[Rfam]
The family of this 86-nucleotide sequence from Tanticharoenia sakaeratensis is "Glycine riboswitch aptamer".
Lineage of the source: Bacteria > Pseudomonadati > Pseudomonadota > Alphaproteobacteria > Tanticharoenia sakaeratensis.
Its family is annotated with glycine biosynthetic process in the Gene Ontology.
RNA sequence: GCCGUCGACACGGGAGAGACCAGCCCGCUGGCGCCGAAGGAGCAACCGCCCCGGAAACUCUCAGGCCAAAGGACCUUGUCGGCGAC
Numbered sequence: 001g002c003c004g005u006c007g008a009c010a011c012g013g014g015a016g017a018g019a020c021c022a023g024c025c026c027g028c029u030g031g032c033g034c035c036g037a038a039g040g041a042g043c044a045a046c047c048g049c050c051c052c053g054g055a056a057a058c059u060c061u062c063a064g065g066c067c068a069a070a071g072g073a074c075c076u077u078g079u080c081g082g083c084g085a086c
Base pairs, nucleotide, nucleotide: 006081007080008079009078010077012075013074020031021030022029023028033066034065035064036062037061040060041059042058046054047053

A search with the family's covariance model found it, with a score of 62 bits.